[Rfam]
RNA sequence: CUCUCCGAAAUAUAUUUAGGUAUAGCCUCGUAUGUUUCUUACCGGAGGUAGAGCACUGGAUGGGCUAGGGGUCUCACCAGAUUACCAAACCUAACCAAACUCCGAAUACCGGUAAGUUAAAGUACGGGAGUCAGCCCGCGGGAGCUAAGUUCCGCGGACGAGAGGGAAACAACCCGGACCGCCAGCUAAGGUCCCCAAAUCUAUGCUAAGUGGAGAAGGAUGUGGGAAUGCCCAGACAACCAGGAGGUUGGCUUAGAAGCAGCCAUCCUUUAAAGAAAGCGUAACAGCUCACUGGUCGAGUGGAUCUGCGCCGAAAAUGUAUCGGGGCUAAAGCAUAGUACCGAAGCUGCGGGAUGUAUUUAUACAUCGGUAGGAGAGCAUUGUGUUGUCAUAGAAUCGCACCUGUGAGGGUGUGUGGAGAAGACACAAGAGACCAU
Numbered sequence: 001c002u003c004u005c006c007g008a009a010a011u012a013u014a015u016u017u018a019g020g021u022a023u024a025g026c027c028u029c030g031u032a033u034g035u036u037u038c039u040u041a042c043c044g045g046a047g048g049u050a051g052a053g054c055a056c057u058g059g060a061u062g063g064g065c066u067a068g069g070g071g072u073c074u075c076a077c078c079a080g081a082u083u084a085c086c087a088a089a090c091c092u093a094a095c096c097a098a099a100c101u102c103c104g105a106a107u108a109c110c111g112g113u114a115a116g117u118u119a120a121a122g123u124a125c126g127g128g129a130g131u132c133a134g135c136c137c138g139c140g141g142g143a144g145c146u147a148a149g150u151u152c153c154g155c156g157g158a159c160g161a162g163a164g165g166g167a168a169a170c171a172a173c174c175c176g177g178a179c180c181g182c183c184a185g186c187u188a189a190g191g192u193c194c195c196c197a198a199a200u201c202u203a204u205g206c207u208a209a210g211u212g213g214a215g216a217a218g219g220a221u222g223u224g225g226g227a228a229u230g231c232c233c234a235g236a237c238a239a240c241c242a243g244g245a246g247g248u249u250g251g252c253u254u255a256g257a258a259g260c261a262g263c264c265a266u267c268c269u270u271u272a273a274a275g276a277a278a279g280c281g282u283a284a285c286a287g288c289u290c291a292c293u294g295g296u297c298g299a300g301u302g303g304a305u306c307u308g309c310g311c312c313g314a315a316a317a318u319g320u321a322u323c324g325g326g327g328c329u330a331a332a333g334c335a336u337a338g339u340a341c342c343g344a345a346g347c348u349g350c351g352g353g354a355u356g357u358a359u360u361u362a363u364a365c366a367u368c369g370g371u372a373g374g375a376g377a378g379c380a381u382u383g384u385g386u387u388g389u390c391a392u393a394g395a396a397u398c399g400c401a402c403c404u405g406u407g408a409g410g411g412u413g414u415g416u417g418g419a420g421a422a423g424a425c426a427c428a429a430g431a432g433a434c435c436a437u
Base pairs, nucleotide, nucleotide: 001378002377003376004375005374006373011024012023013022014021015020026130027128028127029126030125031124032123033122036121038116039115040114041113042112043111044110045109051103052101053100057097058096059095061093062092063091064090068086069085070083071082072081073080074079134159136157137156138155139154140153141152142151143150164175165174166173179352180351181350182349184348185347186346190342191341192340199339201338202337203336204335205334206333218312219311222309223308224307225306226305229302230301231300239296240295241294242293243292245269246268247267250264251263252262270274275290279288280287353368354367355366356365357364358363379432381429382428383427384426385425386424387423389421390420398415399414400413401412402411403410404409